This 83-nucleotide sequence from Ornithorhynchus anatinus belongs to the Rfam family "mir-17 microRNA precursor family". Pairs were carried over by alignment from the consensus structure, which was predicted with RNAalifold. From the family's description: This family represents the microRNA (miRNA) precursor mir-17, family, which includes mir-20, mir-91, and mir-103. miRNAs are transcribed as ~70nt precursors (modelled here) and subsequently processed by the Dicer enzyme to give a ~22nt product. In this case the mature sequence comes from the 3' arm of the precursor. The extents of the hairpin precursors are not generally known and are estimated based on hairpin prediction. Rfam's curators put it in the seed alignment.
[Rfam]
RNA sequence: CCUGACAGUACCAAAGUGCUCAUAGUGCAGGUAGUUUUUUUCAAUUGAUUCUACUGUAAUGUGGGCACUUACAGUACUCCAGG
Numbered sequence: 001c002c003u004g005a006c007a008g009u010a011c012c013a014a015a016g017u018g019c020u021c022a023u024a025g026u027g028c029a030g031g032u033a034g035u036u037u038u039u040u041u042c043a044a045u046u047g048a049u050u051c052u053a054c055u056g057u058a059a060u061g062u063g064g065g066c067a068c069u070u071a072c073a074g075u076a077c078u079c080c081a082g083g
Base pairs, nucleotide, nucleotide: 007078008077010075011074014070015069016068017067018066019065020064021063022062023061024060026058027057028056030055031054032053033052034051